Small nucleolar RNA Z279/snoR105/snoR108: a 99-nucleotide RNA sequence from Lathyrus oleraceus.
From the family's description: This family includes the plant snoRNAs known as Z279, snoR105 and snoR108.
Gene Ontology terms of the family: RNA processing and nucleolus.
The family's consensus secondary structure was predicted with PFOLD.
For this family Rfam cites "Experimental RNomics: identification of 140 candidates for small non-messenger RNAs in the plant Arabidopsis thaliana" (Marker et al., Curr Biol, 2002).
Lineage of the source: Eukaryota > Viridiplantae > Pentapetalae > Fabales > Lathyrus.
RNA sequence: GAGAUAUGAUGAGUGGUCUAGUCUCGUAUAUGCGAGUCGGGUCUCUGCCCCAAGCCUGGUUACGACAAUUGGGCACUCUCCUUUGACCAAUCUGGUCUU
Numbered sequence: 001g002a003g004a005u006a007u008g009a010u011g012a013g014u015g016g017u018c019u020a021g022u023c024u025c026g027u028a029u030a031u032g033c034g035a036g037u038c039g040g041g042u043c044u045c046u047g048c049c050c051c052a053a054g055c056c057u058g059g060u061u062a063c064g065a066c067a068a069u070u071g072g073g074c075a076c077u078c079u080c081c082u083u084u085g086a087c088c089a090a091u092c093u094g095g096u097c098u099u
Base pairs, nucleotide, nucleotide: 001099002098003097004096014089015088016087017086018085023036024035025034026033027032039078040077041076042075044073045072057071058070059069060068